[Rfam]
The record is a 98-nucleotide sequence from Equus caballus, which matches "mir-544 microRNA precursor family" in Rfam. The organism belongs to Equus, within Eukaryota. Rfam links the family to the GO terms miRNA-mediated post-transcriptional gene silencing and RISC complex.

RNA sequence: AUCACCUAGGGAUCUUAUUAAACUGAAAAUUCUGAUGCAGCAUGACUGAGUAGGGCCCUGAGAUUCUUCACUUCUAACAAGUUCUCAGGUGAUGCUGA
Numbered sequence: 001a002u003c004a005c006c007u008a009g010g011g012a013u014c015u016u017a018u019u020a021a022a023c024u025g026a027a028a029a030u031u032c033u034g035a036u037g038c039a040g041c042a043u044g045a046c047u048g049a050g051u052a053g054g055g056c057c058c059u060g061a062g063a064u065u066c067u068u069c070a071c072u073u074c075u076a077a078c079a080a081g082u083u084c085u086c087a088g089g090u091g092a093u094g095c096u097g098a
Stems, first nucleotide, its partner, number of pairs: 003091003009085003014081003018077003021073002025069003029065001031063003

The base pairs follow the family's consensus structure, which was predicted with RNAalifold. A reference for the family is Chiang et al. (2010), "Mammalian microRNAs: experimental evaluation of novel and previously annotated genes", Genes Dev.